Source information:
Rfam assigns this 74-nucleotide RNA sequence from Caenorhabditis remanei to the family "mir-784 microRNA precursor family". Taxonomically the source falls in Caenorhabditis (Eukaryota, Chromadorea, Rhabditina, Peloderinae).
[Rfam]
RNA sequence: UUACCGUAUGGCACAAUACUUGCAUGUAGACGUGACGUUUGUGAUCUACAUACAUCUAUUGAGCCAUCCGGUAU
Numbered sequence: 001u002u003a004c005c006g007u008a009u010g011g012c013a014c015a016a017u018a019c020u021u022g023c024a025u026g027u028a029g030a031c032g033u034g035a036c037g038u039u040u041g042u043g044a045u046c047u048a049c050a051u052a053c054a055u056c057u058a059u060u061g062a063g064c065c066a067u068c069c070g071g072u073a074u
Stems, first nucleotide, its partner, number of pairs: 002073005008067005014061005021054002024051007035042002
Dot-bracket structure: .(((((.(((((.(((((..((.(((((((....((....))..))))))).))..))))).))))).))))).
It is one of the family's seed sequences.